[Rfam]
Rfam assigns this 87-nucleotide RNA from Bifidobacterium stellenboschense to the family "SAM-VI (S-adenosyl methionine) riboswitch aptamer". Taxonomically the source falls in Bifidobacterium (Bacteria, Bacillati, Actinomycetota, Bifidobacteriales). The family's consensus secondary structure was predicted with RNAfold.

RNA sequence: CGUAUCAUUGUGCCUCGCCUGCGCCGGAAGUCCCUAGGACAUCCCGCGGCCCGCGGGGCGAUAAGUCCGAAAGAGGGAUGAUAUGAC
Numbered sequence: 001c002g003u004a005u006c007a008u009u010g011u012g013c014c015u016c017g018c019c020u021g022c023g024c025c026g027g028a029a030g031u032c033c034c035u036a037g038g039a040c041a042u043c044c045c046g047c048g049g050c051c052c053g054c055g056g057g058g059c060g061a062u063a064a065g066u067c068c069g070a071a072a073g074a075g076g077g078a079u080g081a082u083a084u085g086a087c
Stems, first nucleotide, its partner, number of pairs: 001085009011060008019049001021047002067076002